[Rfam]
RNA sequence: UCUGGCUGUGAUGAGACACUUGCCCUCACUUAGAGGAGUGCCUCGAUGCUGAGAACUUCUUAGUACUCGUCUGAGCCCAGA
Numbered sequence: 001u002c003u004g005g006c007u008g009u010g011a012u013g014a015g016a017c018a019c020u021u022g023c024c025c026u027c028a029c030u031u032a033g034a035g036g037a038g039u040g041c042c043u044c045g046a047u048g049c050u051g052a053g054a055a056c057u058u059c060u061u062a063g064u065a066c067u068c069g070u071c072u073g074a075g076c077c078c079a080g081a
Stems, first nucleotide, its partner, number of pairs: 001081004005076002
RNA: Small nucleolar RNA SNORD103/SNORD85
Organism: Salvelinus namaycush